[Rfam]
RNA sequence: GUUGUAUGAUGCGAAGUAGAUGGCAUUAGCACUCUGUGCGAAGAUGACUUACAUCUAUCACCCAGAACUGAUGGCU
Numbered sequence: 001g002u003u004g005u006a007u008g009a010u011g012c013g014a015a016g017u018a019g020a021u022g023g024c025a026u027u028a029g030c031a032c033u034c035u036g037u038g039c040g041a042a043g044a045u046g047a048c049u050u051a052c053a054u055c056u057a058u059c060a061c062c063c064a065g066a067a068c069u070g071a072u073g074g075c076u
Stems, first nucleotide, its partner, number of pairs: 001075004029039004
Dot-bracket structure: ((((........................((((...))))................................)))).
RNA: Small nucleolar RNA SNORD83
Organism: Pelodiscus sinensis